[Rfam]
RNA sequence: GGUUCCAUAGUGUAGCGGUUAUCACACAGGAUUCUGAUGCCAACUUCCUGUAACCCCGGUUCGAUUCCGGGUGGGACCU
Numbered sequence: 001g002g003u004u005c006c007a008u009a010g011u012g013u014a015g016c017g018g019u020u021a022u023c024a025c026a027c028a029g030g031a032u033u034c035u036g037a038u039g040c041c042a043a044c045u046u047c048c049u050g051u052a053a054c055c056c057c058g059g060u061u062c063g064a065u066u067c068c069g070g071g072u073g074g075g076a077c078c079u
Stems, first nucleotide, its partner, number of pairs: 001078007010025003027050005055071005